This 68-nucleotide RNA from Paractinoplanes atraurantiacus belongs to the Rfam family "ASdes TB sRNA".
The source organism's lineage runs through Bacteria, Actinomycetota, Actinomycetes, Micromonosporaceae and Paractinoplanes.
The match comes from Rfam's covariance-model search (66 bits).

[Rfam]
RNA sequence: AGCUCGGUCGGGUCGACGGCGCGAGAGACGGUCAGGUAGUCGCGCAGGGCGAUGCCGUGCCGGCCCUC
Numbered sequence: 001a002g003c004u005c006g007g008u009c010g011g012g013u014c015g016a017c018g019g020c021g022c023g024a025g026a027g028a029c030g031g032u033c034a035g036g037u038a039g040u041c042g043c044g045c046a047g048g049g050c051g052a053u054g055c056c057g058u059g060c061c062g063g064c065c066c067u068c
Base pairs, nucleotide, nucleotide: 004063005062006061008059012029013028017025035056036055037054038053040052041051042050043049
Dot-bracket structure: ...(((.(...((...(.......)..)).....((((.((((.....))))))))..).))).....